Shown here is a 182-nucleotide sequence from Desulfitobacterium hafniense, a member of the family "Lysine riboswitch aptamer". Riboswitches are metabolite binding domains within certain messenger RNAs that serve as precision sensors for their corresponding targets. The organism belongs to Desulfitobacterium hafniense, within Bacteria.

[Rfam]
RNA sequence: AGGUGAGGUAGAGGUGCGAUAUUUAACAGUCCUUUUUGGAGCAUGAGCAGCGAGGAAAACAAGGAGAAGGAAAUAUCGCCGAAGCUUUUAAUACGCUCAGUAUUAUGGGCUGGGUCUGCAGUGAACAACUGCAGAACUGUCUCAAUAGACGUCCCGGUUUAUUGAGUUGUGCUAUCUCGGCG
Numbered sequence: 001a002g003g004u005g006a007g008g009u010a011g012a013g014g015u016g017c018g019a020u021a022u023u024u025a026a027c028a029g030u031c032c033u034u035u036u037u038g039g040a041g042c043a044u045g046a047g048c049a050g051c052g053a054g055g056a057a058a059a060c061a062a063g064g065a066g067a068a069g070g071a072a073a074u075a076u077c078g079c080c081g082a083a084g085c086u087u088u089u090a091a092u093a094c095g096c097u098c099a100g101u102a103u104u105a106u107g108g109g110c111u112g113g114g115u116c117u118g119c120a121g122u123g124a125a126c127a128a129c130u131g132c133a134g135a136a137c138u139g140u141c142u143c144a145a146u147a148g149a150c151g152u153c154c155c156g157g158u159u160u161a162u163u164g165a166g167u168u169g170u171g172c173u174a175u176c177u178c179g180g181c182g
Stems, first nucleotide, its partner, number of pairs: 006177006016079009031064004036059002083111005089105006112138002115135008141166009